[Rfam]
RNA sequence: UAUGUGAAGCACAUGAUGAUGCAUUGGAACUGACUUUGCAUGAGGAGUUUGUAUGCAAUCCAACACUGAGCUUCAUAUU
Numbered sequence: 001u002a003u004g005u006g007a008a009g010c011a012c013a014u015g016a017u018g019a020u021g022c023a024u025u026g027g028a029a030c031u032g033a034c035u036u037u038g039c040a041u042g043a044g045g046a047g048u049u050u051g052u053a054u055g056c057a058a059u060c061c062a063a064c065a066c067u068g069a070g071c072u073u074c075a076u077a078u079u
Base pairs, nucleotide, nucleotide: 002078003077004076005075006074007073008072009071010070
A member of the RNA family "Small nucleolar RNA SNORD69" from Chelonoidis abingdonii, 79 nucleotides long. snoRNA HBII-210 belongs to the C/D family of snoRNAs. The source organism's lineage runs through Eukaryota, Deuterostomia, Sarcopterygii, Durocryptodira and Chelonoidis nigra species complex. A search with the family's covariance model found it, with a score of 66 bits. Its family is annotated with nucleolus and RNA processing in the Gene Ontology. The base pairs follow the family's consensus structure. On this family, see Huttenhofer et al., EMBO J 2001: "RNomics: an experimental approach that identifies 201 candidates for novel, small, non-messenger RNAs in mouse".